c-di-AMP riboswitch aptamer (ydaO/yuaA leader): a 164-nucleotide RNA sequence from Nocardia terpenica. Lineage of the source: Bacteria > Bacillati > Actinomycetes > Mycobacteriales > Nocardia. Gene Ontology terms of the family: regulation of gene expression and cyclic-di-AMP binding.
RNA sequence: GCUAGGCAGCCGCCUAAUCGAGGGUCGGGUGGGCAGCCCGAUCACCGAGCCGGGGAACCAGUUACACGGGGUGAAUCCCCUUCGGCCGCAAGGCCGUCGGGGUAGGGCCGAUCUUCCCGACCCGAACCCGACAGCUAACCCGGUCGGCGGAGUGGGCAGGAAGA
Numbered sequence: 001g002c003u004a005g006g007c008a009g010c011c012g013c014c015u016a017a018u019c020g021a022g023g024g025u026c027g028g029g030u031g032g033g034c035a036g037c038c039c040g041a042u043c044a045c046c047g048a049g050c051c052g053g054g055g056a057a058c059c060a061g062u063u064a065c066a067c068g069g070g071g072u073g074a075a076u077c078c079c080c081u082u083c084g085g086c087c088g089c090a091a092g093g094c095c096g097u098c099g100g101g102g103u104a105g106g107g108c109c110g111a112u113c114u115u116c117c118c119g120a121c122c123c124g125a126a127c128c129c130g131a132c133a134g135c136u137a138a139c140c141c142g143g144u145c146g147g148c149g150g151a152g153u154g155g156g157c158a159g160g161a162a163g164a
Stems, first nucleotide, its partner, number of pairs: 011149004018048003049144006059068001069129003077102004105123003
Dot-bracket structure: ..........((((...(((.........................)))((((((....(........)(((.....((((..................))))..(((.............)))...))).........)))))).))))...............